[Rfam]
RNA: mir-156 microRNA precursor family
RNA sequence: GUGACAGGAGAGAGUGAGCACACGUGGUUAUUGCAUGGAAAUUCCAUGCUUGAAGCACUGAGUGCUCGCUCUCUAUUUGUCAC
Number, nucleotide and partner (000 for none) at each position: 001g083002u082003g081004a080005c079006a078007g077008g076009a000010g073011a072012g071013a070014g069015u068016g067017a066018g065019c064020a063021c062022a000023c060024g059025u000026g000027g000028u000029u000030a000031u000032u000033g000034c000035a000036u000037g000038g000039a000040a000041a000042u000043u000044c000045c000046a000047u000048g000049c000050u000051u000052g000053a000054a000055g000056c000057a000058c000059u024060g023061a000062g021063u020064g019065c018066u017067c016068g015069c014070u013071c012072u011073c010074u000075a000076u008077u007078u006079g005080u004081c003082a002083c001